[Rfam]
RNA: Plastid-ycf3 group II-D1 intron
RNA sequence: AUCUCUUCUGUUGUGUAUCCCCGAUUGAUGCAGGCUCAGAUGCUUCA
Numbered sequence: 001a002u003c004u005c006u007u008c009u010g011u012u013g014u015g016u017a018u019c020c021c022c023g024a025u026u027g028a029u030g031c032a033g034g035c036u037c038a039g040a041u042g043c044u045u046c047a
Base pairs, nucleotide, nucleotide: 010025011024012023013022032044033043